[Rfam]
RNA sequence: GAUGACAAAAGGCAAAACCAUCUAAAGGUGGUGACGCAAAGCCACGGGUCUAAAGUCGCUGACUACGAUAGCCGGGUUGCCAAA
Numbered sequence: 001g002a003u004g005a006c007a008a009a010a011g012g013c014a015a016a017a018c019c020a021u022c023u024a025a026a027g028g029u030g031g032u033g034a035c036g037c038a039a040a041g042c043c044a045c046g047g048g049u050c051u052a053a054a055g056u057c058g059c060u061g062a063c064u065a066c067g068a069u070a071g072c073c074g075g076g077u078u079g080c081c082a083a084a
Base pairs, nucleotide, nucleotide: 012037013036017032018031019030020029021028022027040078041077042076043075045074046073047072048069049068050067055063056062057061

The family of this 84-nucleotide RNA from Brevibacillus centrosporus is "c-di-GMP-I riboswitch aptamer".
Taxonomically the source falls in Brevibacillus (Bacteria, Bacillati, Bacilli, Caryophanales).
A search with the family's covariance model found it, with a score of 80 bits.